[Rfam]
A member of the RNA family "Group II catalytic intron D1-D4-3", 168 nucleotides long. The base pairs follow the family's consensus structure. A search with the family's covariance model found it, with a score of 105 bits.
RNA sequence: UCCGUGGUGACGCGGAAUCUGAAAGAAGCGAGCGGCAAACCUCUGAGGAACACGAAUUUCAUAUAAGGCUAGGUAACAUUGGAUGAGUUUGCAUUACAAAAGAAAGUCCUUACUGCAGAAUGUGGUACAGAGUAAAUGGAGCAGAUAGAUGGAGGGAAAGACUGUACC
Numbered sequence: 001u002c003c004g005u006g007g008u009g010a011c012g013c014g015g016a017a018u019c020u021g022a023a024a025g026a027a028g029c030g031a032g033c034g035g036c037a038a039a040c041c042u043c044u045g046a047g048g049a050a051c052a053c054g055a056a057u058u059u060c061a062u063a064u065a066a067g068g069c070u071a072g073g074u075a076a077c078a079u080u081g082g083a084u085g086a087g088u089u090u091g092c093a094u095u096a097c098a099a100a101a102g103a104a105a106g107u108c109c110u111u112a113c114u115g116c117a118g119a120a121u122g123u124g125g126u127a128c129a130g131a132g133u134a135a136a137u138g139g140a141g142c143a144g145a146u147a148g149a150u151g152g153a154g155g156g157a158a159a160g161a162c163u164g165u166a167c168c
Stems, first nucleotide, its partner, number of pairs: 001016006028168001031165001036160001040155006057141006068133003073128003077124002081109004088101003